Source information
Rfam assigns this 110-nucleotide RNA sequence from Naumovozyma castellii to the family "Small nucleolar RNA snR48". By type it is a C/D-box small nucleolar RNA. Lineage of the source: Eukaryota > Ascomycota > Saccharomycetales > Saccharomycetaceae > Naumovozyma.
RNA sequence: CUAAAAUGAUGAACCUUUGUUAUUGCAUUUUUCUGGCAUCUCUAAUGUUAGGGUGAGAAGUUUAAGUACUAUCCACUCGAUGAAUACAAUUUUUGACUACAUCUCUGAAA
Numbered sequence: 001c002u003a004a005a006a007u008g009a010u011g012a013a014c015c016u017u018u019g020u021u022a023u024u025g026c027a028u029u030u031u032u033c034u035g036g037c038a039u040c041u042c043u044a045a046u047g048u049u050a051g052g053g054u055g056a057g058a059a060g061u062u063u064a065a066g067u068a069c070u071a072u073c074c075a076c077u078c079g080a081u082g083a084a085u086a087c088a089a090u091u092u093u094u095g096a097c098u099a100c101a102u103c104u105c106u107g108a109a110a
Stems, first nucleotide, its partner, number of pairs: 052077004

Rfam links the family to the GO terms RNA processing and nucleolus. Clan: SNORD60 clan. The family's consensus secondary structure was predicted with ILM.